The family of this 77-nucleotide sequence from Nycticryphes semicollaris is "Small nucleolar RNA Z40". A reference for the family is Chen et al. (2003), "The high diversity of snoRNAs in plants: identification and comparative study of 120 snoRNA genes from Oryza sativa", Nucleic Acids Res. Gene Ontology terms of the family: nucleolus and RNA processing. Rfam classes the family as a C/D-box small nucleolar RNA. Pairs were carried over by alignment from the consensus structure, which was predicted with PFOLD.

RNA sequence: AGAAUGUUGUGAUGAUUGGCAAAAUGUUCAACUGCUCUGAAAAGAGUGAGUGAGAAUUAGCCUGUCUGAACAAAUCA
Numbered sequence: 001a002g003a004a005u006g007u008u009g010u011g012a013u014g015a016u017u018g019g020c021a022a023a024a025u026g027u028u029c030a031a032c033u034g035c036u037c038u039g040a041a042a043a044g045a046g047u048g049a050g051u052g053a054g055a056a057u058u059a060g061c062c063u064g065u066c067u068g069a070a071c072a073a074a075u076c077a
Stems, first nucleotide, its partner, number of pairs: 002076002005072003